[Rfam]
RNA sequence: CUACUCCCUCCGUCCCAUAGUGUAAGACGUUUUUUGACACUACAGUGUUAAAAAAUAGUGUCAAAAAACGUCUUACACUAUGAGACGGAGGGAGUAG
Numbered sequence: 001c002u003a004c005u006c007c008c009u010c011c012g013u014c015c016c017a018u019a020g021u022g023u024a025a026g027a028c029g030u031u032u033u034u035u036g037a038c039a040c041u042a043c044a045g046u047g048u049u050a051a052a053a054a055a056u057a058g059u060g061u062c063a064a065a066a067a068a069c070g071u072c073u074u075a076c077a078c079u080a081u082g083a084g085a086c087g088g089a090g091g092g093a094g095u096a097g
Stems, first nucleotide, its partner, number of pairs: 003095003007091005013085002016082002019079023